[Rfam]
RNA sequence: GCCGGGAGGGCGACGAAUACAACACCCUUUGGGGGAAUAAGUCCGCGGUAUCUUUUGGGCCGUUUCGAACCUCCUGGCAACCUCUA
Numbered sequence: 001g002c003c004g005g006g007a008g009g010g011c012g013a014c015g016a017a018u019a020c021a022a023c024a025c026c027c028u029u030u031g032g033g034g035g036a037a038u039a040a041g042u043c044c045g046c047g048g049u050a051u052c053u054u055u056u057g058g059g060c061c062g063u064u065u066c067g068a069a070c071c072u073c074c075u076g077g078c079a080a081c082c083u084c085u086a
Stems, first nucleotide, its partner, number of pairs: 001078009012043003016038001025034003045063005

A member of the RNA family "sRNA-Xcc1" from Spartinivicinus marinus, 86 nucleotides long. The match comes from Rfam's covariance-model search (66 bits). The literature on the family includes a 2011 paper in Nucleic Acids Res by Schmidtke et al., "Genome-wide transcriptome analysis of the plant pathogen Xanthomonas identifies sRNAs with putative virulence functions". Rfam classes the family as a small RNA.